The family of this 600-nucleotide part of an RNA from Saccharomyces arboricola is "Saccharomyces telomerase". The literature on the family includes a 2004 paper in Curr Biol by Dandjinou et al., "A phylogenetically based secondary structure for the yeast telomerase RNA". Clan: Telomerase clan.

RNA sequence: AGAUUUGGUAGACGCUUAAUGAUGGAAGGGUUGGACAGGAUUUAGAAUUGAGAUUGGAGGUUAGUUGACAGUUGCACCUCUUUUUUAUUUCUUACGAAUGAGAAAGAUAUGGGGUAUCUGUAUGGAUGCUUGUUUAUACGAGUACGUGUGGACUUUGAUGUUUUUUUUUUCACUUGUAGAUCGCUAAAAUCUGAGCUUGAGAAAUGAAUGCAGGACCAUGUGUGCCCGUAUACCAGCGUUACAUUCCGUUGCUGAAAUAUGUUUUCCCUGCAACAGAACGAAACCUUCUUAGGUCAGCUCUAUGUUCAUCUCAACCUCUUCAUUGUUAUAGAGAAUGUCUACCACUACCACACCCACACACAAAAAUCAUGGCUAAUAUUUCUAUUAGUUAAAGCUCCAUGCCACGCCAAUAUUUUUUUCUCGCUUUCUUAUAUAUUCUAUUAUAUUUUCUGUCACUUUCAAAGUGACAGAAAAUAAAAAAGGAGUUUGAAUUAGAUUUGCAGAACGGGCAGUAUCAAACAAUACCGUCAUCAUUAAUGUCUAACUCAUCGUCAACUCUGUAAAAAGGAAACAAGAAAGAAAAGUUGGUGGGUGAAAGUA
Numbered sequence: 001a002g003a004u005u006u007g008g009u010a011g012a013c014g015c016u017u018a019a020u021g022a023u024g025g026a027a028g029g030g031u032u033g034g035a036c037a038g039g040a041u042u043u044a045g046a047a048u049u050g051a052g053a054u055u056g057g058a059g060g061u062u063a064g065u066u067g068a069c070a071g072u073u074g075c076a077c078c079u080c081u082u083u084u085u086u087a088u089u090u091c092u093u094a095c096g097a098a099u100g101a102g103a104a105a106g107a108u109a110u111g112g113g114g115u116a117u118c119u120g121u122a123u124g125g126a127u128g129c130u131u132g133u134u135u136a137u138a139c140g141a142g143u144a145c146g147u148g149u150g151g152a153c154u155u156u157g158a159u160g161u162u163u164u165u166u167u168u169u170u171c172a173c174u175u176g177u178a179g180a181u182c183g184c185u186a187a188a189a190u191c192u193g194a195g196c197u198u199g200a201g202a203a204a205u206g207a208a209u210g211c212a213g214g215a216c217c218a219u220g221u222g223u224g225c226c227c228g229u230a231u232a233c234c235a236g237c238g239u240u241a242c243a244u245u246c247c248g249u250u251g252c253u254g255a256a257a258u259a260u261g262u263u264u265u266c267c268c269u270g271c272a273a274c275a276g277a278a279c280g281a282a283a284c285c286u287u288c289u290u291a292g293g294u295c296a297g298c299u300c301u302a303u304g305u306u307c308a309u310c311u312c313a314a315c316c317u318c319u320u321c322a323u324u325g326u327u328a329u330a331g332a333g334a335a336u337g338u339c340u341a342c343c344a345c346u347a348c349c350a351c352a353c354c355c356a357c358a359c360a361c362a363a364a365a366a367u368c369a370u371g372g373c374u375a376a377u378a379u380u381u382c383u384a385u386u387a388g389u390u391a392a393a394g395c396u397c398c399a400u401g402c403c404a405c406g407c408c409a410a411u412a413u414u415u416u417u418u419u420c421u422c423g424c425u426u427u428c429u430u431a432u433a434u435a436u437u438c439u440a441u442u443a444u445a446u447u448u449u450c451u452g453u454c455a456c457u458u459u460c461a462a463a464g465u466g467a468c469a470g471a472a473a474a475u476a477a478a479a480a481a482g483g484a485g486u487u488u489g490a491a492u493u494a495g496a497u498u499u500g501c502a503g504a505a506c507g508g509g510c511a512g513u514a515u516c517a518a519a520c521a522a523u524a525c526c527g528u529c530a531u532c533a534u535u536a537a538u539g540u541c542u543a544a545c546u547c548a549u550c551g552u553c554a555a556c557u558c559u560g561u562a563a564a565a566a567g568g569a570a571a572c573a574a575g576a577a578a579g580a581a582a583a584g585u586u587g588g589u590g591g592g593u594g595a596a597a598g599u600a
Base pairs, nucleotide, nucleotide: 006344007343008342009341010340011339012338013337067118068117069114147220148219149218150217151216160211161210163208164207168204169203170202173195174194175193178192179191180190181189372389373388374387375386376385377384446474447473448472449471450470451469452468454466455465456464457463482559483558484557485556486555487554490546492544493543494542495541496540497539508529509528510527513524514523515522
Annotation:
The match comes from Rfam's covariance-model search (800 bits). Taxonomically the source falls in Saccharomyces arboricola (Eukaryota, saccharomyceta, Saccharomycetaceae, Saccharomyces). Pairs were carried over by alignment from the consensus structure, which is taken from published work.